[Rfam]
RNA sequence: AUACUUACCUGCACGGGGUUGAUGGGCGAUCAAGAAGGCUCAUGGCUUAGGCAGGUGACCUCCAUUGCACUUUGGAGGGGUCCCUCCCUAUGGCCUCCCCAAGUGGUAGAGGCAACGUCGUAAUUUGCUGCAGCGGAGGCCUUUGUCCACGCGGCCCUGCC
Numbered sequence: 001a002u003a004c005u006u007a008c009c010u011g012c013a014c015g016g017g018g019u020u021g022a023u024g025g026g027c028g029a030u031c032a033a034g035a036a037g038g039c040u041c042a043u044g045g046c047u048u049a050g051g052c053a054g055g056u057g058a059c060c061u062c063c064a065u066u067g068c069a070c071u072u073u074g075g076a077g078g079g080g081u082c083c084c085u086c087c088c089u090a091u092g093g094c095c096u097c098c099c100c101a102a103g104u105g106g107u108a109g110a111g112g113c114a115a116c117g118u119c120g121u122a123a124u125u126u127g128c129u130g131c132a133g134c135g136g137a138g139g140c141c142u143u144u145g146u147c148c149a150c151g152c153g154g155c156c157c158u159g160c161c
Stems, first nucleotide, its partner, number of pairs: 013118003016048006023042005049089003055083001057081001059079003062075002091114002094111001095109002098106002135160001137158003142153001144151002
RNA: U1 spliceosomal RNA